RNA: mir-1923 microRNA precursor family
RNA sequence: UUGCCACUUAAAAUGGUGGUGUCGAUAACGUUUUUCAUUAAUUUUUUAAUGACUAAUCGUGUACCGUUGCACAGUCAUGGUGG
Numbered sequence: 001u002u003g004c005c006a007c008u009u010a011a012a013a014u015g016g017u018g019g020u021g022u023c024g025a026u027a028a029c030g031u032u033u034u035u036c037a038u039u040a041a042u043u044u045u046u047u048a049a050u051g052a053c054u055a056a057u058c059g060u061g062u063a064c065c066g067u068u069g070c071a072c073a074g075u076c077a078u079g080g081u082g083g
Base pairs, nucleotide, nucleotide: 002082003081004080005079006078012068013067014066015065016064017063018062023059024058025057026056032055035052036051037050038049039048040047041046
Dot-bracket structure: .(((((.....(((((((....((((.....(..(((((((....)))))))..)))))..))))))).........))))).